The family of this 59-nucleotide RNA sequence from Lactobacillus pasteurii is "Transposase-1 RNA".

RNA sequence: CUAUCAGAGCCGGUCAAUGUCAUUACCCCCUAGUUGGGAUAUGGGAAUACUAGUGAAGA
Numbered sequence: 001c002u003a004u005c006a007g008a009g010c011c012g013g014u015c016a017a018u019g020u021c022a023u024u025a026c027c028c029c030c031u032a033g034u035u036g037g038g039a040u041a042u043g044g045g046a047a048u049a050c051u052a053g054u055g056a057a058g059a
Stems, first nucleotide, its partner, number of pairs: 009054002012051003020044004027038003